Mahella-1 RNA: a 113-nucleotide sequence.
It is annotated as a small RNA.
RNA sequence: CCCGAGCCGUCCAAUGCUGUAACCCAAUACAGGUCCACUGAUAAGGUGGGUGGCGGCAAAUAACGCCAUACGAUGAGUAGGGGCGUUAUGUUGAAUACCGGUUAAGGAUAGAA
Numbered sequence: 001c002c003c004g005a006g007c008c009g010u011c012c013a014a015u016g017c018u019g020u021a022a023c024c025c026a027a028u029a030c031a032g033g034u035c036c037a038c039u040g041a042u043a044a045g046g047u048g049g050g051u052g053g054c055g056g057c058a059a060a061u062a063a064c065g066c067c068a069u070a071c072g073a074u075g076a077g078u079a080g081g082g083g084c085g086u087u088a089u090g091u092u093g094a095a096u097a098c099c100g101g102u103u104a105a106g107g108a109u110a111g112a113a
Base pairs, nucleotide, nucleotide: 033051034050035049036048037047038046060089061088062087063086064085065084066083067082069079070078071077096110097109098107099106